[Rfam]
RNA sequence: GUCAGGAACCCCACGCAUGAAUGCGGGGGCUUGCCUCGGUAAGCCCACACCUGACCAGUCUUAGCUCGUUCGUGAGCUCCGUUCGGGAAGAAAUAGGUACGGCAGGGUGCAUGCCAGCCCAGCCCUCUACGGUCAGUCGUUAAACAUCCCUACAGGGUUAAGGACGUGCGGCUGACGAGAAACCUUCCACGAACAUUGAUGAGGCACACAAAAA
Numbered sequence: 001g002u003c004a005g006g007a008a009c010c011c012c013a014c015g016c017a018u019g020a021a022u023g024c025g026g027g028g029g030c031u032u033g034c035c036u037c038g039g040u041a042a043g044c045c046c047a048c049a050c051c052u053g054a055c056c057a058g059u060c061u062u063a064g065c066u067c068g069u070u071c072g073u074g075a076g077c078u079c080c081g082u083u084c085g086g087g088a089a090g091a092a093a094u095a096g097g098u099a100c101g102g103c104a105g106g107g108u109g110c111a112u113g114c115c116a117g118c119c120c121a122g123c124c125c126u127c128u129a130c131g132g133u134c135a136g137u138c139g140u141u142a143a144a145c146a147u148c149c150c151u152a153c154a155g156g157g158u159u160a161a162g163g164a165c166g167u168g169c170g171g172c173u174g175a176c177g178a179g180a181a182a183c184c185u186u187c188c189a190c191g192a193a194c195a196u197u198g199a200u201g202a203g204g205c206a207c208a209c210a211a212a213a214a
Base pairs, nucleotide, nucleotide: 001055002054003053004052005051006050010029011028012026016023017022030043031042032041033040058200059199060198063078064077065076066075067074081194082193083192084191085190086188087187088186089185090184097130098129101124102123103122105120106119107118108117112206113205114204115203132176133175134174135173136172137171138170139169140168144167145166147164148163149162151160152159

HNH endonuclease-associated RNA and ORF (HEARO) RNA: a 214-nucleotide sequence from Dictyobacter arantiisoli.
For this family Rfam cites "Exceptional structured noncoding RNAs revealed by bacterial metagenome analysis" (Weinberg et al., Nature, 2009).
Rfam classes the family as a non-coding RNA gene.